[Rfam]
The record is a 137-nucleotide RNA sequence from Etheostoma spectabile, which matches "Small nucleolar RNA SNORA22" in Rfam.
Rfam links the family to the GO terms nucleolus and RNA processing.
The family's RNA type in Rfam is H/ACA-box small nucleolar RNA.
A search with the family's covariance model found it, with a score of 90 bits.
Pairs were carried over by alignment from the consensus structure, which was predicted with RNAfold.
The family has 31 seed sequences and 883 matches in Rfam 15.1.

RNA sequence: UUGCACAGAGAACACCCAAGGAUGCUAAUGUAGCACUCCCUGGUCUCUUUUAUCUGUGCCACAGUAAAUCUGAUCUGUACCUCUGCAUUAGGAGAGUCCCUUCCUCCCCUAUAUGUAUUCAGCGGAUCAGUACAAAC
Numbered sequence: 001u002u003g004c005a006c007a008g009a010g011a012a013c014a015c016c017c018a019a020g021g022a023u024g025c026u027a028a029u030g031u032a033g034c035a036c037u038c039c040c041u042g043g044u045c046u047c048u049u050u051u052a053u054c055u056g057u058g059c060c061a062c063a064g065u066a067a068a069u070c071u072g073a074u075c076u077g078u079a080c081c082u083c084u085g086c087a088u089u090a091g092g093a094g095a096g097u098c099c100c101u102u103c104c105u106c107c108c109c110u111a112u113a114u115g116u117a118u119u120c121a122g123c124g125g126a127u128c129a130g131u132a133c134a135a136a137c
Base pairs, nucleotide, nucleotide: 003059004058005057006056007055008054010053014049016043017042018041020039022037024034025033026032061076063074065072066071083122084121085120086115087114088113090110091109092108094106095105096104

Notes: The organism belongs to Oligocephalus, within Eukaryota.